[Rfam]
RNA sequence: CAAGUUAAUACAGCGCCUGGACCGUGAGCGAACAUCAAGUAUUGAGCAUGGUUGACGAGGAAGAGGGUUAUCGAAAGAUUCGGCGGAUGCCCUCUCGGUGUCUUGGCACCGCAGGCUUAUUACAAAACCGCGAAGUGAUUUGCGGAACAAAGAGUAAGCAUCAAGGAAC
Numbered sequence: 001c002a003a004g005u006u007a008a009u010a011c012a013g014c015g016c017c018u019g020g021a022c023c024g025u026g027a028g029c030g031a032a033c034a035u036c037a038a039g040u041a042u043u044g045a046g047c048a049u050g051g052u053u054g055a056c057g058a059g060g061a062a063g064a065g066g067g068u069u070a071u072c073g074a075a076a077g078a079u080u081c082g083g084c085g086g087a088u089g090c091c092c093u094c095u096c097g098g099u100g101u102c103u104u105g106g107c108a109c110c111g112c113a114g115g116c117u118u119a120u121u122a123c124a125a126a127a128c129c130g131c132g133a134a135g136u137g138a139u140u141u142g143c144g145g146a147a148c149a150a151a152g153a154g155u156a157a158g159c160a161u162c163a164a165g166g167a168a169c
Stems, first nucleotide, its partner, number of pairs: 020053007029044003062095005071083004096111005115159007128145007
Rfam assigns this 169-nucleotide RNA from Desulfitobacterium dichloroeliminans to the family "glmS glucosamine-6-phosphate activated ribozyme aptamer". Lineage of the source: Bacteria > Eubacteriales > Desulfitobacteriaceae > Desulfitobacterium > Desulfitobacterium dichloroeliminans. The family's RNA type in Rfam is riboswitch. From the family's description: This entry contains a glucosamine-6-phosphate activated ribozyme that is found in the mRNA for GlmS. GlmS is an enzyme that uses fructose-6-phosphate and glutamine to generate glucosamine-6-phosphate. The ribozyme catalyses self cleavage of the glmS mRNA that is thought to regulate GlmS activity. On this family, see Winkler et al., Nature 2004: "Control of gene expression by a natural metabolite-responsive ribozyme".